Shown here is a 212-nucleotide RNA sequence from Roseicella frigidaeris, a member of the family "permuted transfer-messenger RNA". It scores 136 bits against the family's covariance model.
RNA sequence: GGUGAUAAACGUGGCUCGGGAUAAGCGUUGCGGACCCGGGGGCAGUGCCCGGCGCCUCCACCACCUCAGCCGCCCGUGUCGGGGCGGCGGCAAGGGGGCGAAACAGGCUCGACGCGCGUGGUAAUGGGGUCGCUUUUGCCCGGCAUGGUUCCGCCGUCAUCGGGCCAAAUCUAAGUGCGAACGACAACGACGCACUCGCUGUUGCUGCGUAA
Number, nucleotide and partner (000 for none) at each position: 001g140002g139003u138004g137005a136006u000007a000008a000009a000010c000011g000012u000013g000014g130015c129016u128017c127018g000019g000020g000021a000022u000023a000024a000025g000026c118027g117028u116029u000030g115031c114032g113033g000034a000035c000036c052037c051038g050039g049040g048041g000042g000043c000044a000045g000046u000047g000048c040049c039050c038051g037052g036053c100054g099055c098056c097057u096058c095059c094060a000061c000062c000063a000064c000065c000066u000067c000068a000069g000070c000071c000072g000073c000074c000075c000076g000077u000078g000079u000080c000081g000082g000083g000084g000085c000086g000087g000088c000089g000090g000091c000092a000093a000094g059095g058096g057097g056098g055099c054100g053101a000102a000103a000104c000105a000106g000107g000108c000109u000110c000111g000112a000113c032114g031115c030116g028117c027118g026119u000120g000121g000122u000123a000124a000125u000126g000127g017128g016129g015130u014131c000132g000133c000134u000135u000136u005137u004138g003139c002140c001141c156142g155143g154144c153145a000146u000147g000148g000149u000150u000151c000152c000153g144154c143155c142156g141157u000158c000159a000160u000161c000162g000163g000164g000165c000166c000167a000168a000169a000170u000171c000172u000173a000174a000175g000176u000177g000178c000179g000180a000181a000182c000183g000184a000185c000186a000187a000188c000189g000190a000191c000192g000193c000194a000195c000196u000197c000198g000199c000200u000201g000202u000203u000204g000205c000206u000207g000208c000209g000210u000211a000212a000
NCBI's taxonomy places the organism under Bacteria, Alphaproteobacteria, Acetobacterales, Roseomonadaceae, Roseicella.